[Rfam]
RNA sequence: GGCAACUUGCCCCGAUUGGGGGUGUUACCUUGAAAGAUGUAUUCUCUUUGGUUAUCGCGCCAAUUAUUGUUGGUCUAGUACUUAAACUAGUCGAUUAUUGGUUGAAUAAUCGCCGAUAACUAAGCAGGUUGCUUCAGCCCACACGCUUGUAGUCGCAUCAAGCGAAAAA
Numbered sequence: 001g002g003c004a005a006c007u008u009g010c011c012c013c014g015a016u017u018g019g020g021g022g023u024g025u026u027a028c029c030u031u032g033a034a035a036g037a038u039g040u041a042u043u044c045u046c047u048u049u050g051g052u053u054a055u056c057g058c059g060c061c062a063a064u065u066a067u068u069g070u071u072g073g074u075c076u077a078g079u080a081c082u083u084a085a086a087c088u089a090g091u092c093g094a095u096u097a098u099u100g101g102u103u104g105a106a107u108a109a110u111c112g113c114c115g116a117u118a119a120c121u122a123a124g125c126a127g128g129u130u131g132c133u134u135c136a137g138c139c140c141a142c143a144c145g146c147u148u149g150u151a152g153u154c155g156c157a158u159c160a161a162g163c164g165a166a167a168a169a
Base pairs, nucleotide, nucleotide: 001133002132003131004130005129006128007127008126010021011020012019013018023034025032049122050121051120052119053118054117055116056115057114060072062070075090076089077088078087079086091105092104093103094102095101096100144164145163146162147161148160
Description:
A member of the RNA family "Enterococcus sRNA B11" from Lapidilactobacillus concavus, 169 nucleotides long. The source organism's lineage runs through Bacteria, Bacilli, Lactobacillales, Lactobacillaceae and Lapidilactobacillus concavus. On this family, see Innocenti et al., RNA 2015: "Whole-genome mapping of 5' RNA ends in bacteria by tagged sequencing: a comprehensive view in Enterococcus faecalis". The family's RNA type in Rfam is small RNA. It scores 105 bits against the family's covariance model.